[Rfam]
RNA sequence: CUUGAAAUAUGAUGAAAUCAGAAAAAUCUUAGGACACCUUCUGACACAGUUUGACAAUGCUGUGUAUGAGAAUGCUUUUUUCCUUUCUGAUUUUGAC
Numbered sequence: 001c002u003u004g005a006a007a008u009a010u011g012a013u014g015a016a017a018u019c020a021g022a023a024a025a026a027u028c029u030u031a032g033g034a035c036a037c038c039u040u041c042u043g044a045c046a047c048a049g050u051u052u053g054a055c056a057a058u059g060c061u062g063u064g065u066a067u068g069a070g071a072a073u074g075c076u077u078u079u080u081u082c083c084u085u086u087c088u089g090a091u092u093u094u095g096a097c
Stems, first nucleotide, its partner, number of pairs: 002096006042048002
RNA: Small nucleolar RNA snoR31/Z110/Z27
Organism: Helianthus annuus